[Rfam]
RNA: SAM riboswitch aptamer (S box leader)
RNA sequence: CUCUUAUCAAGAGCAGGUGGAGGGAUAAGCCCGAUGAAACCCGGCAACCGAUUUACCUAGCAGGUAAAAACGGUGCUAAUUCUUACAGUUUUUGAACUGAAAGAUAAGAG
Numbered sequence: 001c002u003c004u005u006a007u008c009a010a011g012a013g014c015a016g017g018u019g020g021a022g023g024g025a026u027a028a029g030c031c032c033g034a035u036g037a038a039a040c041c042c043g044g045c046a047a048c049c050g051a052u053u054u055a056c057c058u059a060g061c062a063g064g065u066a067a068a069a070a071c072g073g074u075g076c077u078a079a080u081u082c083u084u085a086c087a088g089u090u091u092u093u094g095a096a097c098u099g100a101a102a103g104a105u106a107a108g109a110g
Stems, first nucleotide, its partner, number of pairs: 001110008013042001016041003022032003026085004043077004048073002052067002081102001086099005
Dot-bracket structure: ((((((((....(..(((...(((.[[[[)))......))))((((.((..((............))....))))))...(]]]](((((....)))))..)))))))))